[Rfam]
RNA sequence: ACUUACCCAUCGCUGAGUUUCCGACAGGGAAACGGGGGAACCAAGUUAUCUAUGGGGUGAAUACUGCACGAAGCCGUUCGCGGCGCCGUGCAAUUAGGGCGACUCUCGCGUCCGAACCCGGCAGCUAACCUCGUAAGCGUGAAGAGAGAGGCA
Numbered sequence: 001a002c003u004u005a006c007c008c009a010u011c012g013c014u015g016a017g018u019u020u021c022c023g024a025c026a027g028g029g030a031a032a033c034g035g036g037g038g039a040a041c042c043a044a045g046u047u048a049u050c051u052a053u054g055g056g057g058u059g060a061a062u063a064c065u066g067c068a069c070g071a072a073g074c075c076g077u078u079c080g081c082g083g084c085g086c087c088g089u090g091c092a093a094u095u096a097g098g099g100c101g102a103c104u105c106u107c108g109c110g111u112c113c114g115a116a117c118c119c120g121g122c123a124g125c126u127a128a129c130c131u132c133g134u135a136a137g138c139g140u141g142a143a144g145a146g147a148g149a150g151g152c153a
Stems, first nucleotide, its partner, number of pairs: 011139004018031003032134006042054002055119003063094001065092006097113004
The family of this 153-nucleotide RNA from Paenibacillus oceani is "c-di-AMP riboswitch aptamer (ydaO/yuaA leader)".
NCBI's taxonomy places the organism under Bacteria, Bacillati, Bacillota, Caryophanales, Paenibacillus.